[Rfam]
RNA sequence: GGCAGCAUGGGUGAAGCGGGUUGGGUCGUCGCCGAACUCGCCGAGUACCCGGGCGCCGAGGACGAGACCGAGUCCGGGAAGA
Number, nucleotide and partner (000 for none) at each position: 001g000002g000003c000004a000005g000006c000007a000008u044009g000010g042011g041012u040013g039014a000015a000016g000017c000018g038019g037020g000021u035022u034023g033024g032025g000026u000027c000028g000029u000030c000031g000032c024033c023034g022035a021036a000037c019038u018039c013040g012041c011042c010043g000044a008045g000046u000047a000048c000049c000050c000051g000052g000053g000054c000055g000056c078057c077058g000059a000060g075061g074062a073063c072064g000065a000066g000067a000068c000069c000070g000071a000072g063073u062074c061075c060076g000077g057078g056079a000080a000081g000082a000
RNA: Actinobacteria sRNA Ms_AS-4